[Rfam]
Nucleotides: 282
Base pairs, nucleotide, nucleotide: 001256002255003254004253005251006250009247011230012229013228014227015226016225017190018189019188020187021186023184024183026180027179028178029177033088034087035086036085037084038083039082040081098160100158102157111126112125113124136152137151138150201219202218231245232244233243234242261282262281263280264279265278266277267276268275269274
Number, partner (000 for none) and nucleotide at each position: 001256a002255a003254u004253a005251a006250u007000a008000u009247a010000u011230c012229g013228g014227c015226u016225u017190c018189u019188c020187a021186u022000g023184g024183g025000a026180g027179g028178g029177u030000g031000g032000c033088u034087c035086a036085c037084u038083u039082c040081u041000g042000u043000u044000a045000c046000u047000c048000g049000u050000a051000g052000g053000c054000a055000g056000a057000c058000a059000u060000u061000g062000g063000u064000c065000a066000u067000g068000u069000c070000a071000u072000a073000a074000c075000g076000g077000g078000g079000a080000a081040g082039g083038g084037g085036g086035u087034g088033a089000g090000g091000c092000a093000u094000a095000u096000a097000u098160g099000u100158c101000a102157a103000c104000u105000u106000u107000u108000c109000a110000g111126g112125u113124g114000c115000u116000c117000a118000c119000c120000u121000u122000a123000c124113u125112g126111u127000u128000u129000g130000c131000a132000u133000u134000u135000g136152g137151a138150a139000u140000g141000c142000u143000u144000g145000u146000g147000g148000c149000a150138u151137u152136c153000a154000u155000u156000a157102u158100g159000u160098c161000u162000g163000a164000c165000a166000g167000a168000c169000a170000u171000a172000a173000a174000u175000a176000a177029a178028c179027c180026u181000c182000c183024c184023c185000a186021a187020u188019g189018a190017g191000u192000u193000g194000g195000a196000c197000g198000c199000u200000c201219g202218g203000a204000a205000c206000g207000g208000g209000a210000g211000g212000u213000u214000u215000a216000u217000c218202u219201u220000c221000c222000u223000a224000a225016g226015a227014g228013c229012c230011g231245c232244c233243c234242c235000c236000u237000u238000u239000g240000a241000c242234g243233g244232g245231g246000c247009u248000a249000g250006g251005u252000c253004u254003a255002u256001u257000c258000g259000g260000c261282c262281g263280c264279u265278c266277a267276u268275g269274u270000g271000u272000c273000a274269a275268c276267a277266u278265g279264g280263g281262c282261g